[Rfam]
The family of this 89-nucleotide RNA sequence from Ziziphus jujuba is "mir-160 microRNA precursor family". The literature on the family includes a 2002 paper in Cell by Rhoades et al., "Prediction of plant microRNA targets". The base pairs follow the family's consensus structure, which was predicted with PFOLD.
RNA sequence: UCAUGCUUGGCUCCUUGCACGCCAUGGGCAAGAAACCAAUCAACAUUUGGGUUGGUUCCUACCUAUGGCAUACAAGGAGCCAGGCAUAA
Numbered sequence: 001u002c003a004u005g006c007u008u009g010g011c012u013c014c015u016u017g018c019a020c021g022c023c024a025u026g027g028g029c030a031a032g033a034a035a036c037c038a039a040u041c042a043a044c045a046u047u048u049g050g051g052u053u054g055g056u057u058c059c060u061a062c063c064u065a066u067g068g069c070a071u072a073c074a075a076g077g078a079g080c081c082a083g084g085c086a087u088a089a
Stems, first nucleotide, its partner, number of pairs: 001089001003087004008082007016074002019071001021069004027063002